The family of this 250-nucleotide sequence from Saccharibacillus brassicae is "T-box leader". Rfam classes the family as a cis-regulatory leader.
RNA sequence: UAACAAGCUUUGAAGGGAAUCCAGUAGCGUUCGAACCCGUACUUUCAGAGAAUCGGCGGUUGGUGCGAGCCGAUAGACGAACGAACGUCAAUUACGUCCCGGAGCUUCCCGUUACCGAACCCGCGAUCGCGGAAGGAACGGGACGGACUCGUCCCCGUUAUCGGACUUUAUGAGAGGGAGACGCGCUUGCGGUAUGGAUGCAGGCGCCUUUCCAAUCAGGGUGGUACCGCGAUUAAGACUCGUCCCUGCA
Numbered sequence: 001u002a003a004c005a006a007g008c009u010u011u012g013a014a015g016g017g018a019a020u021c022c023a024g025u026a027g028c029g030u031u032c033g034a035a036c037c038c039g040u041a042c043u044u045u046c047a048g049a050g051a052a053u054c055g056g057c058g059g060u061u062g063g064u065g066c067g068a069g070c071c072g073a074u075a076g077a078c079g080a081a082c083g084a085a086c087g088u089c090a091a092u093u094a095c096g097u098c099c100c101g102g103a104g105c106u107u108c109c110c111g112u113u114a115c116c117g118a119a120c121c122c123g124c125g126a127u128c129g130c131g132g133a134a135g136g137a138a139c140g141g142g143a144c145g146g147a148c149u150c151g152u153c154c155c156c157g158u159u160a161u162c163g164g165a166c167u168u169u170a171u172g173a174g175a176g177g178g179a180g181a182c183g184c185g186c187u188u189g190c191g192g193u194a195u196g197g198a199u200g201c202a203g204g205c206g207c208c209u210u211u212c213c214a215a216u217c218a219g220g221g222u223g224g225u226a227c228c229g230c231g232a233u234u235a236a237g238a239c240u241c242g243u244c245c246c247u248g249c250a
Stems, first nucleotide, its partner, number of pairs: 007105002015100004027088006042076002052074006108142006116136001144157003177213005183207009218247004229243004
For this family Rfam cites "The GA motif: an RNA element common to bacterial antitermination systems, rRNA, and eukaryotic RNAs" (Winkler et al., RNA, 2001). The source organism's lineage runs through Bacteria, Bacillota, Bacilli, Paenibacillaceae and Saccharibacillus.